[Rfam]
RNA sequence: ACGCCUCUGGAAAGUGGAUUGCCCGGGUAUCUCCGGGUAACCCCGCCGACGGUGCAAGCCCGGCUCAACCUCGGGUGAAACUCUCAGGCGUCCUCGAAGGACACGGACAGAGUGGGGAGG
Numbered sequence: 001a002c003g004c005c006u007c008u009g010g011a012a013a014g015u016g017g018a019u020u021g022c023c024c025g026g027g028u029a030u031c032u033c034c035g036g037g038u039a040a041c042c043c044c045g046c047c048g049a050c051g052g053u054g055c056a057a058g059c060c061c062g063g064c065u066c067a068a069c070c071u072c073g074g075g076u077g078a079a080a081c082u083c084u085c086a087g088g089c090g091u092c093c094u095c096g097a098a099g100g101a102c103a104c105g106g107a108c109a110g111a112g113u114g115g116g117g118a119g120g
Stems, first nucleotide, its partner, number of pairs: 002115001005112005016043002019040009045089003048085002052083001054081001058076006
About this RNA:
A member of the RNA family "Glycine riboswitch aptamer" from Amycolatopsis xylanica, 120 nucleotides long. Clan: Glycine riboswitch clan. Rfam links the family to the GO term glycine biosynthetic process.